RNA sequence: AACGACCGGCUGAGCGCAUCCGUGUGCCCGGCCCACAAGUGGAGCUCCGUUCUCCCACCUGGUCGACCAUCGGUCGGCAGGUCUCCGGUCAGGCGGUAGCCAUCGUUCCGUACGGACGAUGGAGCUGCCCGAUAGCGCCCCGCGGCUUGCCGUGGCGGUGUUCCGGUAUGGAGCCCCGCCUGUGCCCGUCGGGGCAUUUUUC
Numbered sequence: 001a002a003c004g005a006c007c008g009g010c011u012g013a014g015c016g017c018a019u020c021c022g023u024g025u026g027c028c029c030g031g032c033c034c035a036c037a038a039g040u041g042g043a044g045c046u047c048c049g050u051u052c053u054c055c056c057a058c059c060u061g062g063u064c065g066a067c068c069a070u071c072g073g074u075c076g077g078c079a080g081g082u083c084u085c086c087g088g089u090c091a092g093g094c095g096g097u098a099g100c101c102a103u104c105g106u107u108c109c110g111u112a113c114g115g116a117c118g119a120u121g122g123a124g125c126u127g128c129c130c131g132a133u134a135g136c137g138c139c140c141c142g143c144g145g146c147u148u149g150c151c152g153u154g155g156c157g158g159u160g161u162u163c164c165g166g167u168a169u170g171g172a173g174c175c176c177c178g179c180c181u182g183u184g185c186c187c188g189u190c191g192g193g194g195c196a197u198u199u200u201u202c
Stems, first nucleotide, its partner, number of pairs: 004090006012029001030083004036061002039058004043053002062078007092129005100122008137195006143188003151184003154180005160174005
RNA: Streptomyces RNA 1601